[Rfam]
A member of the RNA family "mir-146 microRNA precursor family" from Pleuronectes platessa, 92 nucleotides long. Rfam links the family to the GO terms miRNA-mediated post-transcriptional gene silencing and RISC complex. A search with the family's covariance model found it, with a score of 60 bits. Rfam 15.1 lists 1,617 matches to the family in 642 species. The organism belongs to Pleuronectes, within Eukaryota.
RNA sequence: AUAAGUGCUUUACUAUGAGAACUGAAUUCCAUAGAUGGGGGCAUCUUCAGGUGUCAUCUAUGGGCUUAGUUCUUUUGGUACGGUACUAGUUU
Numbered sequence: 001a002u003a004a005g006u007g008c009u010u011u012a013c014u015a016u017g018a019g020a021a022c023u024g025a026a027u028u029c030c031a032u033a034g035a036u037g038g039g040g041g042c043a044u045c046u047u048c049a050g051g052u053g054u055c056a057u058c059u060a061u062g063g064g065c066u067u068a069g070u071u072c073u074u075u076u077g078g079u080a081c082g083g084u085a086c087u088a089g090u091u092u
Stems, first nucleotide, its partner, number of pairs: 008083002011080003018073008033059004